[Rfam]
A member of the RNA family "permuted transfer-messenger RNA" from Caulobacter sp. 17J65-9, 217 nucleotides long.
RNA sequence: GGGGAUAAACGCGCGCGAAAUAAGCGGACCGGACCCGGGUGCGAUUCCCGGCGGCUCCACCAUUACCUUCCUCCGCGUUAUCGGCGGGAAAGCAUGGGGCCGAUCAGCAUCGACGGACGUGUAAAGGCGUUGCUUUCUCUCGGCCUGACCCACCGUUUCGGGUCAUUUACUAACUGCGAACGAUAACUUCGCUGAAGAGUUCGCUGUCGCUGCGUAA
Numbered sequence: 001g002g003g004g005a006u007a008a009a010c011g012c013g014c015g016c017g018a019a020a021u022a023a024g025c026g027g028a029c030c031g032g033a034c035c036c037g038g039g040u041g042c043g044a045u046u047c048c049c050g051g052c053g054g055c056u057c058c059a060c061c062a063u064u065a066c067c068u069u070c071c072u073c074c075g076c077g078u079u080a081u082c083g084g085c086g087g088g089a090a091a092g093c094a095u096g097g098g099g100c101c102g103a104u105c106a107g108c109a110u111c112g113a114c115g116g117a118c119g120u121g122u123a124a125a126g127g128c129g130u131u132g133c134u135u136u137c138u139c140u141c142g143g144c145c146u147g148a149c150c151c152a153c154c155g156u157u158u159c160g161g162g163u164c165a166u167u168u169a170c171u172a173a174c175u176g177c178g179a180a181c182g183a184u185a186a187c188u189u190c191g192c193u194g195a196a197g198a199g200u201u202c203g204c205u206g207u208c209g210c211u212g213c214g215u216a217a
Stems, first nucleotide, its partner, number of pairs: 001140005013130004025119002029116003035051005052102007141155003

It scores 127 bits against the family's covariance model. Rfam classes the family as a non-coding RNA gene. Pairs were carried over by alignment from the consensus structure, which is taken from published work. Taxonomically the source falls in Caulobacter (Bacteria, Alphaproteobacteria, Caulobacterales, Caulobacteraceae).